[Rfam]
Description
The record is a 71-nucleotide RNA sequence from Thalictrum thalictroides, which matches "Small nucleolar RNA snoR60" in Rfam. Its Rfam clan is "SNORD101 clan". A reference for the family is Barneche et al. (2000), "Fibrillarin genes encode both a conserved nucleolar protein and a novel small nucleolar RNA involved in ribosomal RNA methylation in Arabidopsis thaliana", J Biol Chem. NCBI's taxonomy places the organism under Eukaryota, Viridiplantae, Euphyllophyta, Ranunculaceae, Thalictrum.
RNA sequence: AAGCAUAUGACGAAUGACUCGGAUUCCCCUUCAAGACAGUUUGGGUGAUGUAAACUCGAGUUUCUGAUGCU
Number, nucleotide and partner (000 for none) at each position: 001a000002a071003g070004c069005a068006u000007a000008u000009g000010a000011c000012g000013a000014a000015u000016g000017a000018c000019u000020c000021g000022g000023a000024u000025u000026c000027c000028c000029c000030u000031u000032c000033a000034a000035g000036a000037c000038a000039g000040u000041u000042u000043g000044g000045g000046u000047g000048a000049u000050g000051u000052a000053a000054a000055c000056u000057c000058g000059a000060g000061u000062u000063u000064c000065u000066g000067a000068u005069g004070c003071u002